Rfam assigns this 78-nucleotide sequence from Peromyscus maniculatus to the family "Small nucleolar RNA SNORD83". Taxonomically the source falls in Peromyscus maniculatus (Eukaryota, Gnathostomata, Tetrapoda, Peromyscus).
[Rfam]
RNA sequence: GCCACAUGAUGUUUGCGAUGGGAAGUGAGCGCUGCGCGCGCGGUGCUGACCUUUAUCUAUCACCCUUGACUGAUGGCU
Numbered sequence: 001g002c003c004a005c006a007u008g009a010u011g012u013u014u015g016c017g018a019u020g021g022g023a024a025g026u027g028a029g030c031g032c033u034g035c036g037c038g039c040g041c042g043g044u045g046c047u048g049a050c051c052u053u054u055a056u057c058u059a060u061c062a063c064c065c066u067u068g069a070c071u072g073a074u075g076g077c078u
Stems, first nucleotide, its partner, number of pairs: 001077004029039004